The record is a 143-nucleotide RNA sequence from Phyllobacterium endophyticum, which matches "speF leader" in Rfam. The match comes from Rfam's covariance-model search (103 bits).

[Rfam]
RNA sequence: UUUCGGCUGUCCAUAAGCCGGAAUUACUGAAGAGGCACACCUUCAUUGCCGGUAGUGCGGAUGGGGACAUCCAAGCCAAGGCAGACAAAGCGGAGUGACGCUGACUUAGCGUUGUUCCAUCGCCGCAUGAACUUGUCCGUGUU
Numbered sequence: 001u002u003u004c005g006g007c008u009g010u011c012c013a014u015a016a017g018c019c020g021g022a023a024u025u026a027c028u029g030a031a032g033a034g035g036c037a038c039a040c041c042u043u044c045a046u047u048g049c050c051g052g053u054a055g056u057g058c059g060g061a062u063g064g065g066g067a068c069a070u071c072c073a074a075g076c077c078a079a080g081g082c083a084g085a086c087a088a089a090g091c092g093g094a095g096u097g098a099c100g101c102u103g104a105c106u107u108a109g110c111g112u113u114g115u116u117c118c119a120u121c122g123c124c125g126c127a128u129g130a131a132c133u134u135g136u137c138c139g140u141g142u143u
Stems, first nucleotide, its partner, number of pairs: 001023008034050004057123003076084001094106003
Dot-bracket structure: ((((((((.......))))))))..........((((.........))))......(((................(.......).........(((.......)))..............)))....................
Rfam's curators write: This family is a putative regulatory RNA structure that is found upstream of the speF gene encoding ornithine decarboxylase in Agrobacterium tumefaciens and other alpha-proteobacteria. NCBI's taxonomy places the organism under Bacteria, Pseudomonadota, Hyphomicrobiales, Phyllobacteriaceae, Phyllobacterium.